[Rfam]
A member of the RNA family "Guanidine-I riboswitch aptamer" from Bacillus sp. V59.32b, 98 nucleotides long.
The base pairs follow the family's consensus structure.
NCBI's taxonomy places the organism under Bacteria, Bacillati, Caryophanales, Bacillaceae, Bacillus.
On this family, see Barrick et al., Proc Natl Acad Sci U S A 2004: "New RNA motifs suggest an expanded scope for riboswitches in bacterial genetic control".
RNA sequence: UCUAAAGUUUUCUAGGGUUCCGCGGCAAUAAGCCGGCCUGGUCCGAGAGAAAACGGCAGCUAUUUGCUGUUACACGGAGGGAUAAAAGCCUGGGAGAA
Numbered sequence: 001u002c003u004a005a006a007g008u009u010u011u012c013u014a015g016g017g018u019u020c021c022g023c024g025g026c027a028a029u030a031a032g033c034c035g036g037c038c039u040g041g042u043c044c045g046a047g048a049g050a051a052a053a054c055g056g057c058a059g060c061u062a063u064u065u066g067c068u069g070u071u072a073c074a075c076g077g078a079g080g081g082a083u084a085a086a087a088g089c090c091u092g093g094g095a096g097a098a
Stems, first nucleotide, its partner, number of pairs: 007054006015044002020041002022038001023035004055071006073093001075096001079091003
A search with the family's covariance model found it, with a score of 88 bits.